[Rfam]
RNA sequence: CUACUGUGCCAGCUGGUGAAUGGCUCGGCUCGAGAGCCGACGAAGGACGUGCCAAGCUGCGAUAAGCCUACGGGAGCUGCAUGGAAGCAAAGAACGUAGGAUCUCCGAAUGGGAAUCCCUCUCAACAAUUGCCUUGCGCAAUAGGGAACGUCGGGAACUGAAACAUCUUAGUACCGACAGGAAAAGAACGCAACUGCGAUGUCGUUAGUAACGGCGAGUAAACACGACACAGUCCAAACCGAAUCCCUUACGGGACAUGUGGUGUACGGACUGACACUCAUCGACCGAAACUUUCUGAGAAGUCUUCUGGAACGGAGCGUGAUACAGGGUGACAACCCCGUAUCAGAAAUCAGUACGUCGUGCGUCAGAUCCAGAGUAGCGUGGGUCGGAUAUCCCUCGUGAAAAAUCCCCGGGCAUCCCCCGGGAAGACUAAACACUCCUCGAGACCGAUAGCGAAAAAGUAGCGUGAGCGAACGCUGAAAAGCACUCCACAAAGGAUUGUGCAAUAGAGCCUGAAAUCAGUUGGCGAUAGAAC
Numbered sequence: 001c002u003a004c005u006g007u008g009c010c011a012g013c014u015g016g017u018g019a020a021u022g023g024c025u026c027g028g029c030u031c032g033a034g035a036g037c038c039g040a041c042g043a044a045g046g047a048c049g050u051g052c053c054a055a056g057c058u059g060c061g062a063u064a065a066g067c068c069u070a071c072g073g074g075a076g077c078u079g080c081a082u083g084g085a086a087g088c089a090a091a092g093a094a095c096g097u098a099g100g101a102u103c104u105c106c107g108a109a110u111g112g113g114a115a116u117c118c119c120u121c122u123c124a125a126c127a128a129u130u131g132c133c134u135u136g137c138g139c140a141a142u143a144g145g146g147a148a149c150g151u152c153g154g155g156a157a158c159u160g161a162a163a164c165a166u167c168u169u170a171g172u173a174c175c176g177a178c179a180g181g182a183a184a185a186g187a188a189c190g191c192a193a194c195u196g197c198g199a200u201g202u203c204g205u206u207a208g209u210a211a212c213g214g215c216g217a218g219u220a221a222a223c224a225c226g227a228c229a230c231a232g233u234c235c236a237a238a239c240c241g242a243a244u245c246c247c248u249u250a251c252g253g254g255a256c257a258u259g260u261g262g263u264g265u266a267c268g269g270a271c272u273g274a275c276a277c278u279c280a281u282c283g284a285c286c287g288a289a290a291c292u293u294u295c296u297g298a299g300a301a302g303u304c305u306u307c308u309g310g311a312a313c314g315g316a317g318c319g320u321g322a323u324a325c326a327g328g329g330u331g332a333c334a335a336c337c338c339c340g341u342a343u344c345a346g347a348a349a350u351c352a353g354u355a356c357g358u359c360g361u362g363c364g365u366c367a368g369a370u371c372c373a374g375a376g377u378a379g380c381g382u383g384g385g386u387c388g389g390a391u392a393u394c395c396c397u398c399g400u401g402a403a404a405a406a407u408c409c410c411c412g413g414g415c416a417u418c419c420c421c422c423g424g425g426a427a428g429a430c431u432a433a434a435c436a437c438u439c440c441u442c443g444a445g446a447c448c449g450a451u452a453g454c455g456a457a458a459a460a461g462u463a464g465c466g467u468g469a470g471c472g473a474a475c476g477c478u479g480a481a482a483a484g485c486a487c488u489c490c491a492c493a494a495a496g497g498a499u500u501g502u503g504c505a506a507u508a509g510a511g512c513c514u515g516a517a518a519u520c521a522g523u524u525g526g527c528g529a530u531a532g533a534a535c
Stems, first nucleotide, its partner, number of pairs: 007528010022513001023477002027448002029445006035438002045106003048061003067100006076088003111120003128142005149180001150178005160167002190197002201228005211219002231431004239262003272367004282360004296345003302318001304317004321325001327339003379400003383396003409425005464471002
Shown here is a 535-nucleotide part of an RNA from Halohasta litchfieldiae, a member of the family "Archaeal large subunit ribosomal RNA". The base pairs follow the family's consensus structure, which is taken from published work.